[Rfam]
RNA: permuted transfer-messenger RNA
RNA sequence: GGUUGUAUGAAGCCAAUCGAAAGGCUGUGUGGACGCGGGUUCGAUUCCCGCCAUCUCCACCAAGAGCACUCUUAGCUACGGUAGAUCCUUGAUCCGAAUGUAGAAAGAGUGCUGUUGAUGGGGAUGCCAAGGUUUCGACAUGCAGAUGAAUAGAAAUGAGCAGACAACCGGACAGGCGACUGACCUAAUCAGCGCAAAAGCACUAAAUGUCGCUGCAAACGACGACUCCUACACGGUCCGCAUCGCGGCUUAA
Number, nucleotide and partner (000 for none) at each position: 001g169002g168003u167004u166005g165006u000007a000008u000009g000010a000011a000012g000013c000014c000015a000016a157017u156018c000019g000020a000021a000022a000023g000024g000025c145026u144027g143028u000029g141030u140031g139032g000033a000034c000035g051036c050037g049038g048039g047040u000041u000042c000043g000044a000045u000046u000047c039048c038049c037050g036051c035052c126053a125054u124055c123056u122057c121058c120059a000060c000061c000062a000063a000064g000065a000066g000067c000068a000069c000070u000071c000072u000073u000074a000075g000076c000077u000078a000079c000080g000081g000082u000083a000084g000085a000086u000087c000088c000089u000090u000091g000092a000093u000094c000095c000096g000097a000098a000099u000100g000101u000102a000103g000104a000105a000106a000107g000108a000109g000110u000111g000112c000113u000114g000115u000116u000117g000118a000119u000120g058121g057122g056123g055124a054125u053126g052127c000128c000129a000130a000131g000132g000133u000134u000135u000136c000137g000138a000139c031140a030141u029142g000143c027144a026145g025146a000147u000148g000149a000150a000151u000152a000153g000154a000155a000156a017157u016158g000159a000160g000161c000162a000163g000164a000165c005166a004167a003168c002169c001170g185171g184172a000173c182174a000175g000176g000177c000178g000179a000180c000181u000182g173183a000184c171185c170186u000187a000188a000189u000190c000191a000192g000193c000194g000195c000196a000197a000198a000199a000200g000201c000202a000203c000204u000205a000206a000207a000208u000209g000210u000211c000212g000213c000214u000215g000216c000217a000218a000219a000220c000221g000222a000223c000224g000225a000226c000227u000228c000229c000230u000231a000232c000233a000234c000235g000236g000237u000238c000239c000240g000241c000242a000243u000244c000245g000246c000247g000248g000249c000250u000251u000252a000253a000